[Rfam]
RNA sequence: GUCAGCUAUGGUGACAUGGUGCCGAAGACCAUCGCUGGGAAAAUCUUUGGCUCUAUCUGUUCUCUGAGUGGAGUCCUGGUGAUCGCUCUGCCUGUUCCUGUCAUUGUCUCCAAC
Numbered sequence: 001g002u003c004a005g006c007u008a009u010g011g012u013g014a015c016a017u018g019g020u021g022c023c024g025a026a027g028a029c030c031a032u033c034g035c036u037g038g039g040a041a042a043a044u045c046u047u048u049g050g051c052u053c054u055a056u057c058u059g060u061u062c063u064c065u066g067a068g069u070g071g072a073g074u075c076c077u078g079g080u081g082a083u084c085g086c087u088c089u090g091c092c093u094g095u096u097c098c099u100g101u102c103a104u105u106g107u108c109u110c111c112a113a114c
Stems, first nucleotide, its partner, number of pairs: 001114002005110001008107004013102004018097002021095002037077004049063002
Dot-bracket structure: ((..(..((((.((((.((.((..............((((........((...........))..........))))................)))).)))).))))..)..))

A member of the RNA family "Potassium channel RNA editing signal" from Geotrypetes seraphini, 114 nucleotides long.
Rfam classes the family as a cis-regulatory element.
About the family: This family represents a group of sequences related to the human potassium channel Kv1.1 hairpin element which directs the efficient modification of an adenosine to inosine by an adenosine deaminase acting on RNA (ADAR).
The family has 85 seed sequences and 14,095 matches in Rfam 15.1.
A reference for the family is Bhalla et al. (2004), "Control of human potassium channel inactivation by editing of a small mRNA hairpin", Nat Struct Mol Biol.